[Rfam]
RNA sequence: GGUCUAUGAGGAUAUUUUUAUAAGGCUUGUUUCUCAAGACAUUCGCAGUGGCCGCCUAAGAGCUUUCGCCUGCGCAGGCUUGAGAGCUGAUGCUGCUCCUAUCCUUCCUUGGAUGUCUGAGAUU
Numbered sequence: 001g002g003u004c005u006a007u008g009a010g011g012a013u014a015u016u017u018u019u020a021u022a023a024g025g026c027u028u029g030u031u032u033c034u035c036a037a038g039a040c041a042u043u044c045g046c047a048g049u050g051g052c053c054g055c056c057u058a059a060g061a062g063c064u065u066u067c068g069c070c071u072g073c074g075c076a077g078g079c080u081u082g083a084g085a086g087c088u089g090a091u092g093c094u095g096c097u098c099c100u101a102u103c104c105u106u107c108c109u110u111g112g113a114u115g116u117c118u119g120a121g122a123u124u
Stems, first nucleotide, its partner, number of pairs: 001124004062087006

This 124-nucleotide sequence from Chenopodium quinoa belongs to the Rfam family "Small nucleolar RNA SNORD14". From the family's description: U14 small nucleolar RNA (U14 snoRNA) is required for early cleavages of eukaryotic precursor rRNAs. In yeasts, this molecule possess a stem-loop region (known as the Y-domain) which is essential for function. A similar structure, but with a different consensus sequence, is found in plants, but is absent in vertebrates. Gene Ontology terms of the family: nucleolus and RNA processing. The family's RNA type in Rfam is C/D-box small nucleolar RNA. NCBI's taxonomy places the organism under Eukaryota, Streptophytina, Spermatophyta, Mesangiospermae, Chenopodium. On this family, see Samarsky et al., Nucleic Acids Res 1996: "An essential domain in Saccharomyces cerevisiae U14 snoRNA is absent in vertebrates, but conserved in other yeasts".